[Rfam]
Nucleotides: 145
Base pairs, nucleotide, nucleotide: 003062004061005060006059007058008057013054014053019048020047021046023042024041025040026039027038028037085139086138087137099133101131105129106128110124111123113121
Number, partner (000 for none) and nucleotide at each position: 001000a002000c003062c004061c005060c006059c007058u008057g009000g010000c011000a012000a013054u014053g015000g016000g017000c018000a019048a020047g021046g022000a023042g024041a025040c026039a027038c028037c029000u030000g031000a032000u033000u034000g035000g036000u037028g038027g039026u040025g041024u042023u043000g044000c045000u046021c047020u048019u049000a050000c051000u052000g053014c054013a055000a056000u057008c058007a059006g060005g061004g062003g063000c064000a065000a066000a067000g068000c069000a070000g071000a072000u073000g074000u075000a076000c077000a078000g079000u080000c081000c082000u083000u084000a085139g086138u087137u088000c089000a090000u091000c092000c093000u094000a095000a096000c097000u098000u099133g100000a101131u102000a103000c104000c105129u106128g107000u108000g109000c110124c111123g112000g113121c114000a115000g116000c117000c118000a119000g120000a121113g122000c123111u124110g125000u126000u127000u128106c129105a130000u131101g132000c133099c134000u135000g136000a137087g138086g139085c140000a141000c142000a143000c144000g145000a
A member of the RNA family "Small nucleolar RNA SNORA48" from Myotis lucifugus, 145 nucleotides long. Rfam describes the family as follows. The snoRNA ACA 48 has been identified to guide pseudouridylation of the residue U3797 in the 28S rRNA subunit. The family has 24 seed sequences and 2,109 matches in Rfam 15.1. Pairs were carried over by alignment from the consensus structure, which was predicted with RNAalifold. For this family Rfam cites "Mapping to nucleotide resolution of pseudouridine residues in large subunit ribosomal RNAs from representative eukaryotes, prokaryotes, archaebacteria, mitochondria and chloroplasts" (Ofengand and Bakin, J Mol Biol, 1997). A search with the family's covariance model found it, with a score of 56 bits.